[Rfam]
RNA: BsrC
RNA sequence: GAUACCUAAAACGAUGAAAGCCCUACCUCUCUUUCAUCCUUACGGUUCCGAGACCGCGCCAGUGUGAAUCAGGUAUGUGAUACAACC
Numbered sequence: 001g002a003u004a005c006c007u008a009a010a011a012c013g014a015u016g017a018a019a020g021c022c023c024u025a026c027c028u029c030u031c032u033u034u035c036a037u038c039c040u041u042a043c044g045g046u047u048c049c050g051a052g053a054c055c056g057c058g059c060c061a062g063u064g065u066g067a068a069u070c071a072g073g074u075a076u077g078u079g080a081u082a083c084a085a086c087c
Stems, first nucleotide, its partner, number of pairs: 034067003039062002041058001043056005